[Rfam]
RNA sequence: UGCGCUCAGUCGCCGAGUCCUCGCCGUUCCGGCGGCGGGGAGCGGGGGACCCACCGGGCGAGUCCAUCGCCCUGGGGCGAAUCGCCGCACAAGCGGCGUAGCGCACGCGCGCGAGCCCGUCAGCUCACCCCGUAGGCGCACAGGCAGAGCCA
Dot-bracket structure: ..........((((...((((((((((....))))))))))((((((....((...................))(((.....((((........))))..((((....))))...))).........)))))).))))..............
c-di-AMP riboswitch aptamer (ydaO/yuaA leader): a 152-nucleotide RNA sequence from bacterium HR41. Gene Ontology terms of the family: cyclic-di-AMP binding and regulation of gene expression. It scores 55 bits against the family's covariance model.